[Rfam]
RNA sequence: CUGGAGUGAUGAUGCUUAGCCAAAUCUGAUAUAUGCUCCAAGAGGCAUUUCUGUAGAACCAUGUUCUGCAAAUGGCUUGCCUCUUGUUGUAGCGUGUCUUGGACGAUAUCACAGGGAAUGGUUUUUGCCUGACCAGA
Dot-bracket structure: ((((................................................................................................................................)))).
Numbered sequence: 001c002u003g004g005a006g007u008g009a010u011g012a013u014g015c016u017u018a019g020c021c022a023a024a025u026c027u028g029a030u031a032u033a034u035g036c037u038c039c040a041a042g043a044g045g046c047a048u049u050u051c052u053g054u055a056g057a058a059c060c061a062u063g064u065u066c067u068g069c070a071a072a073u074g075g076c077u078u079g080c081c082u083c084u085u086g087u088u089g090u091a092g093c094g095u096g097u098c099u100u101g102g103a104c105g106a107u108a109u110c111a112c113a114g115g116g117a118a119u120g121g122u123u124u125u126u127g128c129c130u131g132a133c134c135a136g137a
Stems, first nucleotide, its partner, number of pairs: 001136004
small nucleolar RNA snoR127: a 137-nucleotide RNA from Arabis nemorensis. It is annotated as a C/D-box small nucleolar RNA. It scores 141 bits against the family's covariance model.